RNA sequence: GAAAAUAAAAGUCUUAUCGCUUUUUAAAGAGGAAAGUCCGAACAACACAGAGCAACGUGCUUCCUAACGGGAAGGGGAGAAAUCCACAGAAAGUGCCACAGAAAAUUACCGCCUUCGGGUAAGGGUGAAAAGGUGGGGUAAGAGCCCACCGCAAAUUUGGUGACAAGUUUGGCUAGGUAAACCUCACGUGUUGCAAAAUCAAAUAGGUCGGUGCAGUAAUGCACAGGUUGCUCGCCUGAUGCCGAUGGGUAGAUUGCUAGAGACUUUCAGUGAUGAAAGUCCAAGAUAAAUGAUAAGAGAGCUUUUAGCUUACAGAAUUCGGCUUAUAUUUUAUUUUCUCCU
Number, nucleotide and partner (000 for none) at each position: 001g338002a337003a336004a335005a334006u333007a332008a331009a330010a329011g327012u298013c297014u296015u295016a294017u293018c292019g000020c029021u028022u027023u000024u000025u000026a000027a022028a021029g020030a000031g000032g000033a000034a325035a324036g323037u000038c322039c321040g320041a319042a318043c193044a192045a191046c190047a000048c000049a000050g233051a232052g231053c230054a000055a189056c188057g187058u186059g185060c074061u073062u072063c071064c070065u000066a000067a000068c000069g000070g064071g063072a062073a061074g060075g087076g085077g084078a083079g000080a000081a000082a000083u078084c077085c076086a000087c075088a184089g183090a000091a000092a000093g182094u181095g178096c177097c176098a000099c000100a000101g000102a000103a000104a000105a000106u000107u000108a000109c124110c123111g120112c119113c118114u000115u000116c000117g000118g113119g112120u111121a000122a000123g110124g109125g000126u000127g000128a000129a000130a000131a000132g150133g149134u148135g147136g146137g145138g000139u000140a000141a000142g000143a000144g000145c137146c136147c135148a134149c133150c132151g173152c171153a170154a169155a168156u167157u166158u165159g164160g000161u000162g000163a000164c159165a158166a157167g156168u155169u154170u153171g152172g000173c151174u000175a000176g097177g096178u095179a000180a000181a094182c093183c089184u088185c059186a058187c057188g056189u055190g046191u045192u044193g043194c000195a000196a000197a255198a254199u253200c252201a000202a000203a000204u000205a000206g000207g246208u245209c244210g243211g242212u241213g000214c000215a000216g000217u000218a000219a000220u000221g000222c000223a000224c238225a237226g236227g235228u234229u000230g053231c052232u051233c050234g228235c227236c226237u225238g224239a000240u000241g212242c211243c210244g209245a208246u207247g000248g000249g000250u000251a000252g200253a199254u198255u197256g000257c000258u000259a000260g000261a000262g281263a280264c279265u278266u277267u276268c275269a274270g000271u000272g000273a000274u269275g268276a267277a266278a265279g264280u263281c262282c000283a000284a000285g000286a000287u000288a000289a000290a000291u000292g018293a017294u016295a015296a014297g013298a012299g000300a000301g000302c000303u000304u000305u000306u000307a000308g000309c000310u000311u000312a000313c000314a000315g000316a000317a000318u042319u041320c040321g039322g038323c036324u035325u034326a000327u011328a000329u010330u009331u008332u007333a006334u005335u004336u003337u002338c001339u000340c000341c000342u000

A member of the RNA family "Bacterial RNase P class A" from Sandaracinomonas limnophila, 342 nucleotides long. It is annotated as a ribozyme. Taxonomically the source falls in Sandaracinomonas (Bacteria, Bacteroidota, Cytophagia, Flectobacillaceae). Ribonuclease P (RNase P) is a ubiquitous endoribonuclease, found in archaea, bacteria and eukarya as well as chloroplasts and mitochondria.